The family of this 162-nucleotide RNA sequence from Pseudomonas graminis is "Manganese Mn2+ riboswitch aptamer (yybP-ykoY)".
Rfam links the family to the GO term manganese ion binding.
From the family's description: This RNA was originally discovered in E. coli during a large scale screen and was named SraF. The family was later found to exist upstream of related families of protein genes in many bacteria, including the the yybP and ykoK genes in B. subtilis. The specific functions of these proteins are unknown, but this structured RNA element may be involved in their genetic regulation as a riboswitch.
Taxonomically the source falls in Pseudomonas (Bacteria, Pseudomonadati, Pseudomonadota, Pseudomonadaceae).

RNA sequence: CCUUGUUGGGGAGUAGCCUGCUCUGGACUCAUUGUCCCAGAGCGUUCGUGUCAACAUUCUCGGCGGCCUGCCGUGGCACGAACACCUUCGGGUUGGCGAGACCAACGAUGCAUCCAUGCCUAAAGUCGGGCGUGUGGUUGCGUCGUUGACUCACAGCCCGAC
Numbered sequence: 001c002c003u004u005g006u007u008g009g010g011g012a013g014u015a016g017c018c019u020g021c022u023c024u025g026g027a028c029u030c031a032u033u034g035u036c037c038c039a040g041a042g043c044g045u046u047c048g049u050g051u052c053a054a055c056a057u058u059c060u061c062g063g064c065g066g067c068c069u070g071c072c073g074u075g076g077c078a079c080g081a082a083c084a085c086c087u088u089c090g091g092g093u094u095g096g097c098g099a100g101a102c103c104a105a106c107g108a109u110g111c112a113u114c115c116a117u118g119c120c121u122a123a124a125g126u127c128g129g130g131c132g133u134g135u136g137g138u139u140g141c142g143u144c145g146u147u148g149a150c151u152c153a154c155a156g157c158c159c160g161a162c
Base pairs, nucleotide, nucleotide: 021042022041023040024039025038044083045082046081047080048079049078050077051076052075053074061073062072063071064070065069089160090159